[Rfam]
RNA: Caenorhabditis snoRNA ceN45
Organism: Caenorhabditis angaria
RNA sequence: UGGGGGCACAGAGUUGCAGUUGAUUGAAACUAAAUCAUGUGCGCUAAGUUGUCCCGAAACUAUUCUCGAGCUUUUCUCCAAAUGUUCUAUUCUCUGUUUAGUUGGACGUGGAGAGGGUUCCGAUAUU
Numbered sequence: 001u002g003g004g005g006g007c008a009c010a011g012a013g014u015u016g017c018a019g020u021u022g023a024u025u026g027a028a029a030c031u032a033a034a035u036c037a038u039g040u041g042c043g044c045u046a047a048g049u050u051g052u053c054c055c056g057a058a059a060c061u062a063u064u065c066u067c068g069a070g071c072u073u074u075u076c077u078c079c080a081a082a083u084g085u086u087c088u089a090u091u092c093u094c095u096g097u098u099u100a101g102u103u104g105g106a107c108g109u110g111g112a113g114a115g116g117g118u119u120c121c122g123a124u125a126u127u
Stems, first nucleotide, its partner, number of pairs: 003055006009048001012045003016042003021037005068120006075114005084107004089102003